[Rfam]
RNA sequence: UUCGUAGUCUUAGGGGAGUAGUCUGCUGCGCCGUUUCCGGUGCAGCGCCGCCGUCAACAUAUUUGGCAUCCAUGCCAUGGCGUCGGCAGCCGUCCCACGGCCUGACGAGACCUUUGACGCGUCCUUUUCACCCGAGCCGGGCGAAGGGAUGCGUCAUUGGUUUGCGUGCCCGGCUCGUGGA
Numbered sequence: 001u002u003c004g005u006a007g008u009c010u011u012a013g014g015g016g017a018g019u020a021g022u023c024u025g026c027u028g029c030g031c032c033g034u035u036u037c038c039g040g041u042g043c044a045g046c047g048c049c050g051c052c053g054u055c056a057a058c059a060u061a062u063u064u065g066g067c068a069u070c071c072a073u074g075c076c077a078u079g080g081c082g083u084c085g086g087c088a089g090c091c092g093u094c095c096c097a098c099g100g101c102c103u104g105a106c107g108a109g110a111c112c113u114u115u116g117a118c119g120c121g122u123c124c125u126u127u128u129c130a131c132c133c134g135a136g137c138c139g140g141g142c143g144a145a146g147g148g149a150u151g152c153g154u155c156a157u158u159g160g161u162u163u164g165c166g167u168g169c170c171c172g173g174c175u176c177g178u179g180g181a
Base pairs, nucleotide, nucleotide: 025046026045027044028043029042047087048086049085050084052082053081054080055079056078064077065076066075067074068073093181094180
RNA: Manganese Mn2+ riboswitch aptamer (yybP-ykoY)
Organism: Paraburkholderia steynii